About this RNA: A member of the RNA family "Bacterial RNase P class A" from Diplocloster agilis, 347 nucleotides long. By type it is a ribozyme. Taxonomically the source falls in Diplocloster (Bacteria, Bacillota, Clostridia, Lachnospirales). It scores 301 bits against the family's covariance model.
RNA sequence: UAAGUAAGACAGAUGAUCGCGGCUGGCAGGCCGAAAGGCGCCAGACGAGGAAAGUCCGGGCUUCGCAGGGCAGGAUGCCGGAUAACGUCCGGUGGAGGCGACUCCAAGGCCAGUGCAACAGAAAUGUACCGCCAGCGUUAGCUGGUAAGGUUGGAAGGGUGGUGUAAGAGACCACCGCCCUGCCGGUAACGGCAGGGGCACAUGUAAACCCCAUCCGAAGCAAGACCGAAUUAAAACGAUAGGCUUGCCCGGCCUGUUUUAGGUAGGUCGCUGGAGCCUGUUGGCGACGACAGGCCUAGAUAGAUGAUGAUCCACGACAUAACCCGGCUUAUCGUUUUGCUUAUCCU
Dot-bracket structure: ((((((((((([[[.[[[.((.(((((............))))).))....(((.(((((((((...[[[[.((((((((((.....)))))(((((....)))).)((...(((((...........((((((((....))))))..)).......((((((.......))))))(((((((((....)))))))).)...)))..)))))))))))))...((((.....(((((...(((((.]]]])))))))))).....))))......((((((((....))))))))..........]]].]]]..........)))))))).).))))))))))....
Numbered sequence: 001u002a003a004g005u006a007a008g009a010c011a012g013a014u015g016a017u018c019g020c021g022g023c024u025g026g027c028a029g030g031c032c033g034a035a036a037g038g039c040g041c042c043a044g045a046c047g048a049g050g051a052a053a054g055u056c057c058g059g060g061c062u063u064c065g066c067a068g069g070g071c072a073g074g075a076u077g078c079c080g081g082a083u084a085a086c087g088u089c090c091g092g093u094g095g096a097g098g099c100g101a102c103u104c105c106a107a108g109g110c111c112a113g114u115g116c117a118a119c120a121g122a123a124a125u126g127u128a129c130c131g132c133c134a135g136c137g138u139u140a141g142c143u144g145g146u147a148a149g150g151u152u153g154g155a156a157g158g159g160u161g162g163u164g165u166a167a168g169a170g171a172c173c174a175c176c177g178c179c180c181u182g183c184c185g186g187u188a189a190c191g192g193c194a195g196g197g198g199c200a201c202a203u204g205u206a207a208a209c210c211c212c213a214u215c216c217g218a219a220g221c222a223a224g225a226c227c228g229a230a231u232u233a234a235a236a237c238g239a240u241a242g243g244c245u246u247g248c249c250c251g252g253c254c255u256g257u258u259u260u261a262g263g264u265a266g267g268u269c270g271c272u273g274g275a276g277c278c279u280g281u282u283g284g285c286g287a288c289g290a291c292a293g294g295c296c297u298a299g300a301u302a303g304a305u306g307a308u309g310a311u312c313c314a315c316g317a318c319a320u321a322a323c324c325c326g327g328c329u330u331a332u333c334g335u336u337u338u339g340c341u342u343a344u345c346c347u
Stems, first nucleotide, its partner, number of pairs: 001343010011332001012312003016308003020047002023044005052330003056327005061220004068250004073216005078092005093107001094105004108211002113209002115205003129150002131146006158176006177199001178197008224269004233260005241255005276295008